RNA sequence: GGGCCUCUAGCUCAGCUGGUCAGAGCGUGCCCCUGAUAAGGGCAAGGUCGGUGGUUCAAGUCCACCGAGGCCCA
Number, nucleotide and partner (000 for none) at each position: 001g073002g072003g071004c070005c069006u068007c067008u000009a000010g026011c025012u024013c023014a000015g000016c000017u000018g000019g000020u000021c000022a000023g013024a012025g011026c010027g000028u044029g043030c042031c041032c040033c000034u000035g000036a000037u000038a000039a000040g032041g031042g030043c029044a028045a000046g000047g000048u000049c000050g066051g065052u064053g063054g062055u000056u000057c000058a000059a000060g000061u000062c054063c053064a052065c051066c050067g007068a006069g005070g004071c003072c002073c001074a000

Shown here is a 74-nucleotide RNA from Hydrogenobacter thermophilus, a member of the family "tRNA". Rfam classes the family as a transfer RNA. The organism belongs to Hydrogenobacter thermophilus, within Bacteria. Pairs were carried over by alignment from the consensus structure, which is taken from published work.